[Rfam]
RNA: Lysine riboswitch aptamer
Organism: Carnobacteriaceae bacterium zg-C25
RNA sequence: UUUUAGGAUAGAGGCGCGAAAAUCAUGAGUAGUUUUAAGUAAUGAAAGCAAUCAGCUUAAAAGGAAAGGGAUAAUCGCCGAAAUGUUUUAUAUGUUGCUUCAUAUAAAAUGUUGGAAUAGUCGUGAAUAACGCCUAUUUUGUCAUUAUCACUGAUAAUGGAGUGCUAGCCAAUCG
Numbered sequence: 001u002u003u004u005a006g007g008a009u010a011g012a013g014g015c016g017c018g019a020a021a022a023u024c025a026u027g028a029g030u031a032g033u034u035u036u037a038a039g040u041a042a043u044g045a046a047a048g049c050a051a052u053c054a055g056c057u058u059a060a061a062a063g064g065a066a067a068g069g070g071a072u073a074a075u076c077g078c079c080g081a082a083a084u085g086u087u088u089u090a091u092a093u094g095u096u097g098c099u100u101c102a103u104a105u106a107a108a109a110u111g112u113u114g115g116a117a118u119a120g121u122c123g124u125g126a127a128u129a130a131c132g133c134c135u136a137u138u139u140u141g142u143c144a145u146u147a148u149c150a151c152u153g154a155u156a157a158u159g160g161a162g163u164g165c166u167a168g169c170c171a172a173u174c175g
Base pairs, nucleotide, nucleotide: 006170007169009167010166011165016078017077018076019075022072023071024070033062034061035060036059037058038057039056082113083112084111085110086109087108088107089106090105091104092103093102114140115139116138117137118136119135120134122132123131124130142160143159144158145157146156147155148154